[Rfam]
RNA sequence: CCCCCGCUUUUCCUCCCUGAGCGGGGCCUUGGAUUGCAGCAAUGCAUGACAGGCUUGCUAGCCCGGCUGCCCGCCGGGCUUUUUUUG
Numbered sequence: 001c002c003c004c005c006g007c008u009u010u011u012c013c014u015c016c017c018u019g020a021g022c023g024g025g026g027c028c029u030u031g032g033a034u035u036g037c038a039g040c041a042a043u044g045c046a047u048g049a050c051a052g053g054c055u056u057g058c059u060a061g062c063c064c065g066g067c068u069g070c071c072c073g074c075c076g077g078g079c080u081u082u083u084u085u086u087g
Base pairs, nucleotide, nucleotide: 003025004024005023006022007021008020026054027053028052029051060080061079062078063077064076065075066074067073
This 87-nucleotide RNA sequence from Paenacidovorax monticola belongs to the Rfam family "Burkholderia RNA 7 (anti-hemB)". About the family: This RNA motif was identified by computational search in b-proteobacteria Burkholderia. Co-purified with Hfq, expression confirmed by Northern blot. For this family Rfam cites "Experimental identification of small non-coding regulatory RNAs in the opportunistic human pathogen Burkholderia cenocepacia J2315" (Ramos et al., Genomics, 2013).